[Rfam]
This 75-nucleotide RNA from Haloquadratum sp. J07HQX50 belongs to the Rfam family "tRNA".

RNA sequence: GGGUUGGUAGUCUAGUCUGGUUAUGACACCUCCUUGACAUGGAGGAGAUCGGCAGUUCAAAUCUGCCCUAACCCA
Dot-bracket structure: (((((((..(((............))).(((((.......))))).....(((((.......)))))))))))).
Transfer RNA (tRNA) molecules are approximately 80 nucleotides in length. By type it is a transfer RNA.